About this RNA: Shown here is a 141-nucleotide RNA sequence from Sander lucioperca, a member of the family "Small nucleolar RNA SNORA64/SNORA10 family". The family has 9 seed sequences and 703 matches in Rfam 15.1. Its family is annotated with RNA processing and nucleolus in the Gene Ontology. A search with the family's covariance model found it, with a score of 35 bits.
[Rfam]
RNA sequence: GUUUUCUCCUUGCUCUGCUCAGCUUCACCUCUGCAGUGGUGUAGUUGUCGUUAUCAGGAGAGAAAGAAAUGAGUAUUGUAAUGCACGGCAGAGAGACCGUUUUAGUGGUCUCCUCUGUUCCCCUUUCAGUACUCUACAGUU
Numbered sequence: 001g002u003u004u005u006c007u008c009c010u011u012g013c014u015c016u017g018c019u020c021a022g023c024u025u026c027a028c029c030u031c032u033g034c035a036g037u038g039g040u041g042u043a044g045u046u047g048u049c050g051u052u053a054u055c056a057g058g059a060g061a062g063a064a065a066g067a068a069a070u071g072a073g074u075a076u077u078g079u080a081a082u083g084c085a086c087g088g089c090a091g092a093g094a095g096a097c098c099g100u101u102u103u104a105g106u107g108g109u110c111u112c113c114u115c116u117g118u119u120c121c122c123c124u125u126u127c128a129g130u131a132c133u134c135u136a137c138a139g140u141u
Stems, first nucleotide, its partner, number of pairs: 002066007013058001015057003021046004026041003074131005080125002083123001090116003094111005
Dot-bracket structure: .(((((((....(.(((...((((.(((..........))).))))........)))).))))))).......(((((.((.(......(((.(((((........)))))..)))......))).)))))..........

Background:
About the family: This family belongs to the H/ACA class of small nucleolar RNAs (snoRNAs) which act as guides in the the modification of uridines to pseudouridines. This family includes the human snoRNAs U64 and ACA10 and mouse MBI-29. It is annotated as an H/ACA-box small nucleolar RNA.